[Rfam]
A member of the RNA family "small Cajal body-specific RNA 17" from Suricata suricatta, 139 nucleotides long. Gene Ontology terms of the family: Cajal body, RNA processing and nucleolus. Rfam 15.1 lists 262 matches to the family in 128 species. The base pairs follow the family's consensus structure, which is taken from published work.

RNA sequence: CCCCCGAGUUCCCCGUAUAGCCCCCGAUGAGCUCGCGGUAUUUUCCUUAUAUGAUCAGGCCUCAUUGCUGGCGACGCCGCUAGUCCGGAGCCUGAGAAGAUUAUGAAAACGUGUGGCGAGGCGGGGCUGGGGACCGGGG
Numbered sequence: 001c002c003c004c005c006g007a008g009u010u011c012c013c014c015g016u017a018u019a020g021c022c023c024c025c026g027a028u029g030a031g032c033u034c035g036c037g038g039u040a041u042u043u044u045c046c047u048u049a050u051a052u053g054a055u056c057a058g059g060c061c062u063c064a065u066u067g068c069u070g071g072c073g074a075c076g077c078c079g080c081u082a083g084u085c086c087g088g089a090g091c092c093u094g095a096g097a098a099g100a101u102u103a104u105g106a107a108a109a110c111g112u113g114u115g116g117c118g119a120g121g122c123g124g125g126g127c128u129g130g131g132g133a134c135c136g137g138g139g
Stems, first nucleotide, its partner, number of pairs: 001139003005136002008134006020127005055095006062088002067084007